A member of the RNA family "TPP riboswitch aptamer (THI element)" from Thalassotalea sp. PP2-459, 105 nucleotides long.

RNA sequence: CGCCAAGCCAAGGGGUGCAAUGCUUUUACGAGCAUUUGCUGAGAGAAUUUACCCUUAUUACCUGAUGCGGAUAAUGCCGAUGUAGGGAUGGUUAAUUGAAUGACC
Dot-bracket structure: .....(((((((((..((((...............))))............)))).....((((...(((......)))...))))..)))))............
The match comes from Rfam's covariance-model search (59 bits). Lineage of the source: Bacteria > Pseudomonadati > Pseudomonadota > Colwelliaceae > Thalassotalea.